[Rfam]
RNA sequence: GGCUGAUCUGAUGGUAAUGGGUUAUCAGAAGUUAUUAGCACUAGUGUCACUAAAGUUGGUAUACAGCCCCCCACUGCUAAAUUUGACUGGCUUAAA
Numbered sequence: 001g002g003c004u005g006a007u008c009u010g011a012u013g014g015u016a017a018u019g020g021g022u023u024a025u026c027a028g029a030a031g032u033u034a035u036u037a038g039c040a041c042u043a044g045u046g047u048c049a050c051u052a053a054a055g056u057u058g059g060u061a062u063a064c065a066g067c068c069c070c071c072c073a074c075u076g077c078u079a080a081a082u083u084u085g086a087c088u089g090g091c092u093u094a095a096a
Stems, first nucleotide, its partner, number of pairs: 001092005007086002010084002015079001016075001018073004027060001030057002
RNA: Y RNA